RNA sequence: GCAAUCCUUCGGGGCAGGGUGAAAUUCCCGGCCGGCGGUGAUGGGCACAUGCCCUCAGUCCGUGACCCGUAUUCGUACGGUGGACCCGGUGCAACUCCGGGACCGACAGUUAAAGUCUGGAUGGGAGAAGGAGCCG
Numbered sequence: 001g002c003a004a005u006c007c008u009u010c011g012g013g014g015c016a017g018g019g020u021g022a023a024a025u026u027c028c029c030g031g032c033c034g035g036c037g038g039u040g041a042u043g044g045g046c047a048c049a050u051g052c053c054c055u056c057a058g059u060c061c062g063u064g065a066c067c068c069g070u071a072u073u074c075g076u077a078c079g080g081u082g083g084a085c086c087c088g089g090u091g092c093a094a095c096u097c098c099g100g101g102a103c104c105g106a107c108a109g110u111u112a113a114a115g116u117c118u119g120g121a122u123g124g125g126a127g128a129a130g131g132a133g134c135c136g
Stems, first nucleotide, its partner, number of pairs: 005132006017029003031116002033105002035063004058103002067080002085101005107119003
FMN riboswitch aptamer (RFN element): a 136-nucleotide RNA sequence from Bhargavaea cecembensis. It scores 107 bits against the family's covariance model.